Overview:
The family of this 87-nucleotide sequence from Gossypium stocksii is "MIR7486 microRNA precursor family". The base pairs follow the family's consensus structure, which was predicted with RNAalifold. The source organism's lineage runs through Eukaryota, Viridiplantae, Streptophytina, Tracheophyta and Gossypium. Rfam links the family to the GO terms miRNA-mediated post-transcriptional gene silencing and RISC complex.

[Rfam]
RNA sequence: CCUGAGGAAGCGUUUUGUCCACGUAGGCAUAAAACGCGUCCUCAAGGAAGCUUUUUGUGCCGACGUGGACAAAACGCUUCCUCAGGG
Numbered sequence: 001c002c003u004g005a006g007g008a009a010g011c012g013u014u015u016u017g018u019c020c021a022c023g024u025a026g027g028c029a030u031a032a033a034a035c036g037c038g039u040c041c042u043c044a045a046g047g048a049a050g051c052u053u054u055u056u057g058u059g060c061c062g063a064c065g066u067g068g069a070c071a072a073a074a075c076g077c078u079u080c081c082u083c084a085g086g087g
Base pairs, nucleotide, nucleotide: 001086002085003084004083005082006081007080008079009078010077011076012075013074014073015072016071017070018069019068020067021066023064024063026061027060028059029058030057031056032055033054034053036051037050040047041046